[Rfam]
RNA sequence: AUAUAAGCAACUUUUCACUUUUUAGAUUCAUUGAAUAAUUGAAGUAUCUAGUCUAAAAUGUGACCAAAUACAUCAAUUAUUCAAUGAAUCUAAAAAGUGAAAAGUUGCUUAUAU
Numbered sequence: 001a002u003a004u005a006a007g008c009a010a011c012u013u014u015u016c017a018c019u020u021u022u023u024a025g026a027u028u029c030a031u032u033g034a035a036u037a038a039u040u041g042a043a044g045u046a047u048c049u050a051g052u053c054u055a056a057a058a059u060g061u062g063a064c065c066a067a068a069u070a071c072a073u074c075a076a077u078u079a080u081u082c083a084a085u086g087a088a089u090c091u092a093a094a095a096a097g098u099g100a101a102a103a104g105u106u107g108c109u110u111a112u113a114u
Stems, first nucleotide, its partner, number of pairs: 002113006009106005015100011027088016044071001049066001051064002